[Rfam]
Annotation:
The family of this 87-nucleotide RNA sequence from Paenibacillus oceani is "c-di-GMP-I-GGC riboswitch aptamer". A search with the family's covariance model found it, with a score of 63 bits. Its Rfam clan is "c-di-GMP_I riboswitch clan". The source organism's lineage runs through Bacteria, Bacillati, Bacillota, Paenibacillaceae and Paenibacillus.

RNA sequence: UACGAUAAUAGCAAACUUGCCGAAAGGCAAGGACGCAAAGCUAUAGGGCCUUAUUGACACCGUCAAAUGGCAGCCUGGCCGCCGAAA
Numbered sequence: 001u002a003c004g005a006u007a008a009u010a011g012c013a014a015a016c017u018u019g020c021c022g023a024a025a026g027g028c029a030a031g032g033a034c035g036c037a038a039a040g041c042u043a044u045a046g047g048g049c050c051u052u053a054u055u056g057a058c059a060c061c062g063u064c065a066a067a068u069g070g071c072a073g074c075c076u077g078g079c080c081g082c083c084g085a086a087a
Stems, first nucleotide, its partner, number of pairs: 001087001003084002011036002016031006034073001040079003045076003048071003